[Rfam]
RNA sequence: CAUUUAUCCAGAAAGACCGAGGGAAUGGCCCUGUGACGUCUUAGCAACCUGUAGCAAUAAGGUGCUAAUUCCACUCCUUAAUCGGGAGAUAGAUAAAAU
Numbered sequence: 001c002a003u004u005u006a007u008c009c010a011g012a013a014a015g016a017c018c019g020a021g022g023g024a025a026u027g028g029c030c031c032u033g034u035g036a037c038g039u040c041u042u043a044g045c046a047a048c049c050u051g052u053a054g055c056a057a058u059a060a061g062g063u064g065c066u067a068a069u070u071c072c073a074c075u076c077c078u079u080a081a082u083c084g085g086g087a088g089a090u091a092g093a094u095a096a097a098a099u
Base pairs, nucleotide, nucleotide: 003097004096005095006094007093008092013042014041015040016039017038021031022030023029026073027072028071043066044065045064046063048062049061051058052057070091074088075087076086077085078084
RNA: SAM riboswitch aptamer (S box leader)